A member of the RNA family "Flavo-1 RNA" from Polaribacter sp. IC066, 82 nucleotides long. The match comes from Rfam's covariance-model search (42 bits).
RNA sequence: GUUUAGCCCUGAUUGAGCGGUUUGUUUGAGCUCUUUUUUGCUUUUUCAGCAAAAAAAGCGAGUAGCGAAAGCAGGAAAUAGC
Numbered sequence: 001g002u003u004u005a006g007c008c009c010u011g012a013u014u015g016a017g018c019g020g021u022u023u024g025u026u027u028g029a030g031c032u033c034u035u036u037u038u039u040g041c042u043u044u045u046u047c048a049g050c051a052a053a054a055a056a057a058g059c060g061a062g063u064a065g066c067g068a069a070a071g072c073a074g075g076a077a078a079u080a081g082c
Stems, first nucleotide, its partner, number of pairs: 009074003013070002017066002022061004035055008

Pairs were carried over by alignment from the consensus structure, which is taken from published work.